[Rfam]
RNA sequence: AAAGUUUAACAGACAAUCGCCGGUGCCGCGUAAGGCGGCACGGGAGGAAAGUCCGGGCUUCGCAGGGCAGGAUGCUGGAUAACGUCCAGUCAGCGCGAGCUGAAGGAUUAGUGCCACAGAAAUGGACCGCCGAUGGCCGCUUUCGGGCGUGCACAGGUAAGGGUGGAACCGGAGUGUAAGAGACUCCGAGGGGCGCUGGUGACUUCGUCCCUGGUAAACCCCAUCCGAAGCAAGACCUAAUGAAACGCCGUUUCCGGCUUGCCGGAAGCAGCCCUUGCCCGGGGUGCGUUUAGGUUGGUCGCUUGAGCCGUACAGCAAUGUGCGGCCUAGACAGAUGAUUGUCGCUCACAGCGGGAGGGUAGUUCCCGUCUGCACCGCAAAGUAGCACAGAACCCGGCUUACGGUAAGCUUUCCGC
Number, nucleotide and partner (000 for none) at each position: 001a412002a411003a410004g409005u408006u407007u406008a405009a000010c403011a000012g343013a342014c341015a340016a339017u338018c337019g000020c044021c043022g000023g041024u040025g039026c038027c037028g036029c000030g000031u000032a000033a000034g000035g000036c028037g027038g026039c025040a024041c023042g000043g021044g020045a000046g000047g000048a000049a400050a399051g398052u000053c397054c396055g395056g394057g393058c230059u229060u228061c227062g000063c000064a000065g280066g279067g278068c277069a000070g226071g225072a224073u223074g222075c089076u088077g087078g086079a085080u000081a000082a000083c000084g000085u079086c078087c077088a076089g075090u104091c102092a101093g100094c099095g000096c000097g000098a000099g094100c093101u092102g091103a000104a090105g221106g220107a000108u000109u000110a000111g219112u218113g215114c214115c213116a000117c000118a000119g000120a000121a000122a000123u000124g000125g000126a000127c162128c161129g158130c157131c156132g000133a000134u153135g152136g000137c000138c000139g000140c000141u000142u000143u000144c000145g000146g000147g000148c000149g000150u000151g000152c135153a134154c000155a000156g131157g130158u129159a000160a000161g128162g127163g000164u000165g000166g000167a000168a000169c000170c188171g187172g186173a185174g184175u183176g000177u000178a000179a000180g000181a000182g000183a175184c174185u173186c172187c171188g170189a000190g211191g210192g209193g208194c207195g206196c000197u000198g203199g000200u000201g000202a000203c198204u000205u000206c195207g194208u193209c192210c191211c190212u000213g115214g114215u113216a000217a000218a112219c111220c106221c105222c074223a073224u072225c071226c070227g061228a060229a059230g058231c000232a000233a000234g300235a299236c298237c297238u000239a000240a000241u000242g000243a291244a290245a289246c288247g287248c286249c000250g000251u000252u000253u000254c000255c000256g000257g000258c000259u000260u000261g000262c000263c000264g000265g000266a000267a000268g000269c000270a000271g285272c284273c283274c282275u281276u000277g068278c067279c066280c065281g275282g274283g273284g272285u271286g248287c247288g246289u245290u244291u243292a000293g000294g000295u000296u000297g237298g236299u235300c234301g000302c000303u000304u000305g000306a000307g326308c325309c324310g323311u322312a321313c320314a319315g000316c000317a000318a000319u314320g313321u312322g311323c310324g309325g308326c307327c000328u000329a000330g000331a000332c000333a000334g000335a000336u000337g018338a017339u016340u015341g014342u013343c012344g000345c000346u000347c000348a000349c000350a000351g000352c000353g000354g000355g000356a000357g000358g000359g000360u000361a000362g000363u000364u000365c000366c000367c000368g000369u000370c000371u000372g000373c000374a000375c000376c000377g000378c000379a000380a000381a000382g000383u000384a000385g000386c000387a000388c000389a000390g000391a000392a000393c057394c056395c055396g054397g053398c051399u050400u049401a000402c000403g010404g000405u008406a007407a006408g005409c004410u003411u002412u001413c000414c000415g000416c000
This 416-nucleotide RNA from Saccharibacillus brassicae belongs to the Rfam family "Bacterial RNase P class A". It scores 260 bits against the family's covariance model. By type it is a ribozyme. The base pairs follow the family's consensus structure, which is taken from published work. The organism belongs to Saccharibacillus, within Bacteria.